[Rfam]
RNA sequence: UUCAUUGUGGGUCAAUGAUGUAUUCUUGUUGGAACUGAAUCUAAGUGAUCUAACUUAAAGAUUCGUCACUAUCACUGAGACAACGAUGAA
Numbered sequence: 001u002u003c004a005u006u007g008u009g010g011g012u013c014a015a016u017g018a019u020g021u022a023u024u025c026u027u028g029u030u031g032g033a034a035c036u037g038a039a040u041c042u043a044a045g046u047g048a049u050c051u052a053a054c055u056u057a058a059a060g061a062u063u064c065g066u067c068a069c070u071a072u073c074a075c076u077g078a079g080a081c082a083a084c085g086a087u088g089a090a
Base pairs, nucleotide, nucleotide: 001090002089003088004087005086006085007084008083011081012080013079
Dot-bracket structure: ((((((((..(((.................................................................))).))))))))